[Rfam]
RNA sequence: GAAUCAGCUCAGCCCAGUGGUUCCUUCGACCAAAGCAUUGCUUUGAUCCCCUAAUCACUUCCAGGGGUCUGAGACCGACAGGCACUGACUGGCUUUCUU
Number, nucleotide and partner (000 for none) at each position: 001g000002a094003a000004u092005c091006a090007g089008c000009u000010c000011a000012g083013c082014c081015c000016a000017g079018u078019g000020g076021u000022u000023c000024c000025u073026u072027c071028g070029a000030c000031c000032a000033a000034a000035g000036c000037a000038u000039u000040g000041c000042u000043u000044u000045g000046a000047u000048c000049c000050c000051c000052u000053a000054a000055u000056c000057a000058c000059u000060u000061c000062c000063a000064g000065g000066g000067g000068u000069c000070u028071g027072a026073g025074a000075c000076c020077g000078a018079c017080a000081g014082g013083c012084a000085c000086u000087g000088a000089c007090u006091g005092g004093c000094u002095u000096u000097c000098u000099u000
RNA: Vault RNA
Organism: Podarcis lilfordi